RNA sequence: CCUCUGCGAUGAUGAAUUAUGAAAAUAUUCACAUGUCAGACUUCGGAGAUAACAAUCAAUGAGAAGAAAAUUCAUGUCUCUGAGCAGAAG
Numbered sequence: 001c002c003u004c005u006g007c008g009a010u011g012a013u014g015a016a017u018u019a020u021g022a023a024a025a026u027a028u029u030c031a032c033a034u035g036u037c038a039g040a041c042u043u044c045g046g047a048g049a050u051a052a053c054a055a056u057c058a059a060u061g062a063g064a065a066g067a068a069a070a071u072u073c074a075u076g077u078c079u080c081u082g083a084g085c086a087g088a089a090g
Stems, first nucleotide, its partner, number of pairs: 001090001003088005048057003